Rfam assigns this 89-nucleotide sequence from Paenibacillus naphthalenovorans to the family "c-di-GMP-I riboswitch aptamer". Taxonomically the source falls in Paenibacillus (Bacteria, Bacillati, Bacilli, Paenibacillaceae).
RNA sequence: GUCCGAUCAAGGCACAGCCAUUGAAAAGUGGUGUCGCAAAGCUAAAGGGGCUAACGUGUGGAAACACACCAUGCCAGCCAGCCGCCGGA
Numbered sequence: 001g002u003c004c005g006a007u008c009a010a011g012g013c014a015c016a017g018c019c020a021u022u023g024a025a026a027a028g029u030g031g032u033g034u035c036g037c038a039a040a041g042c043u044a045a046a047g048g049g050g051c052u053a054a055c056g057u058g059u060g061g062a063a064a065c066a067c068a069c070c071a072u073g074c075c076a077g078c079c080a081g082c083c084g085c086c087g088g089a
Stems, first nucleotide, its partner, number of pairs: 012037002017032006041082003047079002049075003056069004